RNA sequence: CGGGCACUGCGCUUCUCGUGAAGGGAGCAAUUCCGGUGGCCUUAAGCAAUUCCGAGGGAGUUGGCUCUGGUCGGGCCGUGGUCCGGCUACCUGACGCCCACCUGUAUAUACAGGUCCUCGGGAAUUCGCGAUCCCCACGGUUGUCGUGGUCCCGCC
Numbered sequence: 001c002g003g004g005c006a007c008u009g010c011g012c013u014u015c016u017c018g019u020g021a022a023g024g025g026a027g028c029a030a031u032u033c034c035g036g037u038g039g040c041c042u043u044a045a046g047c048a049a050u051u052c053c054g055a056g057g058g059a060g061u062u063g064g065c066u067c068u069g070g071u072c073g074g075g076c077c078g079u080g081g082u083c084c085g086g087c088u089a090c091c092u093g094a095c096g097c098c099c100a101c102c103u104g105u106a107u108a109u110a111c112a113g114g115u116c117c118u119c120g121g122g123a124a125u126u127c128g129c130g131a132u133c134c135c136c137a138c139g140g141u142u143g144u145c146g147u148g149g150u151c152c153c154g155c156c
Stems, first nucleotide, its partner, number of pairs: 003153002006150006012143001015140001017139003031124004036119001038117001039115003056099003060095005069088008
This 156-nucleotide sequence from Palleronia sediminis belongs to the Rfam family "6S / SsrS RNA". A reference for the family is Chen et al. (2017), "6S RNA Mimics B-Form DNA to Regulate Escherichia coli RNA Polymerase", Molecular Cell. The family's consensus secondary structure is taken from published work.